The record is a 120-nucleotide sequence from Thermotalea metallivorans, which matches "Molybdenum/Tungsten riboswitch aptamer (Moco RNA motif)" in Rfam. It scores 72 bits against the family's covariance model. Taxonomically the source falls in Thermotalea (Bacteria, Bacillota, Clostridia, Peptostreptococcales). The family has 160 seed sequences and 1,248 matches in Rfam 15.1.
RNA sequence: AGGGAUAUGUUUUUCCGAGUCAUAUUGUCUAACGUGCUAUACCAUGAGAAUAUGACCUAUGGGCAUAAGAAGAAAUUCUUAUACCUCCCGUGCUUGGAAAGGAAAAAUCAUCAUUGACAA
Number, nucleotide and partner (000 for none) at each position: 001a000002g000003g114004g000005a000006u000007a000008u000009g000010u000011u106012u105013u104014u103015c102016c101017g000018a000019g056020u055021c054022a053023u052024a051025u050026u049027g000028u047029c046030u000031a000032a000033c000034g042035u041036g040037c000038u000039a000040u036041a035042c034043c000044a000045u000046g029047a028048g000049a026050a025051u024052a023053u022054g021055a020056c019057c000058u000059a000060u000061g086062g085063g084064c000065a082066u081067a080068a079069g078070a077071a076072g000073a000074a000075a000076u071077u070078c069079u068080u067081a066082u065083a000084c063085c062086u061087c097088c096089c000090g000091u000092g000093c000094u000095u000096g088097g087098a000099a000100a000101g016102g015103a014104a013105a012106a011107a000108u000109c000110a000111u000112c000113a000114u003115u000116g000117a000118c000119a000120a000